[Rfam]
RNA sequence: AAUAGUGAACUGGGGUGCCGAAAGCGGGUCCGUUCGCCUCGGCUGAGAACAUACCCAUAGAACCUGAUCUGGAUCAUGCCAGCGAAGGGAGAGUCACCAUCGCGCGCU
Numbered sequence: 001a002a003u004a005g006u007g008a009a010c011u012g013g014g015g016u017g018c019c020g021a022a023a024g025c026g027g028g029u030c031c032g033u034u035c036g037c038c039u040c041g042g043c044u045g046a047g048a049a050c051a052u053a054c055c056c057a058u059a060g061a062a063c064c065u066g067a068u069c070u071g072g073a074u075c076a077u078g079c080c081a082g083c084g085a086a087g088g089g090a091g092a093g094u095c096a097c098c099a100u101c102g103c104g105c106g107c108u
Stems, first nucleotide, its partner, number of pairs: 006096003011057004016051001017043005063088003069082004
RNA: TPP riboswitch aptamer (THI element)